[Rfam]
RNA sequence: AAUCGACAUCAAUGACUGGUUGGUUGAACCCUGGCCGACCGCUAGAUAGGCAUUCAUACCCAGUUCUUUCAUCUGCUGUUCACCGAUGAUUUGGUGAGUGGUGGUCUUACUAUAAUCGUCCGCUAGCUGUUGCGCCUGAGAAGACAGAUAGCUAGAAUUACAAAUGUUGGGCGGCAUAUUGCCCAGGUCCUUGGC
Numbered sequence: 001a002a003u004c005g006a007c008a009u010c011a012a013u014g015a016c017u018g019g020u021u022g023g024u025u026g027a028a029c030c031c032u033g034g035c036c037g038a039c040c041g042c043u044a045g046a047u048a049g050g051c052a053u054u055c056a057u058a059c060c061c062a063g064u065u066c067u068u069u070c071a072u073c074u075g076c077u078g079u080u081c082a083c084c085g086a087u088g089a090u091u092u093g094g095u096g097a098g099u100g101g102u103g104g105u106c107u108u109a110c111u112a113u114a115a116u117c118g119u120c121c122g123c124u125a126g127c128u129g130u131u132g133c134g135c136c137u138g139a140g141a142a143g144a145c146a147g148a149u150a151g152c153u154a155g156a157a158u159u160a161c162a163a164a165u166g167u168u169g170g171g172c173g174g175c176a177u178a179u180u181g182c183c184c185a186g187g188u189c190c191u192u193g194g195c
Stems, first nucleotide, its partner, number of pairs: 005189003012032001014030001017027001019025001033043003050059001062077003078135002081132002084129002087126001094123003098119003102112004137162002140159002167186006
Shown here is a 195-nucleotide RNA sequence from Sodalis sp. Fse, a member of the family "Yersinia sRNA 276".
The family's RNA type in Rfam is antisense RNA.
The family's consensus secondary structure was predicted with RNAfold.
NCBI's taxonomy places the organism under Bacteria, Pseudomonadati, Pseudomonadota, Gammaproteobacteria, Sodalis.